[Rfam]
RNA sequence: CACGCCUGCGAGGAUCAAUUGGUCUAACCAGGUCCCUCGGAUCGAAUCUCAAGGCUUGAUCUUGAGACGAAAGGGUGGUUUUUAUGGAUGUCUUUUGUCCACCCGUCAAUGCCCUCCAUGCCUCUCGCUGGCGAGAACGAUGGAGAGGAAUCAAAAACUGGUCUAAGUU
Number, nucleotide and partner (000 for none) at each position: 001c000002a000003c000004g000005c000006c000007u030008g029009c000010g000011a025012g024013g000014a023015u022016c021017a000018a000019u000020u000021g016022g015023u014024c012025u011026a000027a000028c000029c008030a007031g000032g000033u000034c000035c069036c066037u065038c064039g063040g062041a060042u059043c058044g057045a000046a000047u000048c053049u000050c000051a000052a000053g048054g000055c000056u000057u044058g043059a042060u041061c000062u040063u039064g038065a037066g036067a000068c000069g035070a000071a000072a000073g000074g000075g000076u000077g000078g000079u000080u000081u000082u000083u000084a000085u000086g000087g163088a162089u161090g158091u157092c000093u156094u155095u154096u153097g152098u000099c000100c000101a000102c000103c000104c000105g000106u000107c000108a000109a000110u000111g000112c148113c147114c145115u144116c143117c142118a000119u000120g000121c000122c000123u136124c135125u134126c133127g132128c000129u000130g000131g000132c127133g126134a125135g124136a123137a000138c000139g000140a000141u000142g117143g116144a115145g114146a000147g113148g112149a000150a000151u000152c097153a096154a095155a094156a093157a091158c090159u000160g000161g089162u088163c087164u000165a000166a000167g000168u000169u000